[Rfam]
RNA sequence: GCAUGGUAAGGAUUUAUGGCAGGCCAUUCUCCUUGAGUCUUUUACAGUAUACCCAGGCCAAAGUAAGCUGUAGCCUCAAACCAUUGCCCAGCCCUCUUACCUGUAGGCUGUAAGUUCUGAGGGUUUGCACAAUG
Dot-bracket structure: ((.(((((.....((.(((.(((.(.........)..))).))).))..)))).).))............(((.((.....((...(.(((((............)))))...)...))..)).))).......
RNA: Small nucleolar RNA SNORA42/SNORA80 family
Organism: Tupaia belangeri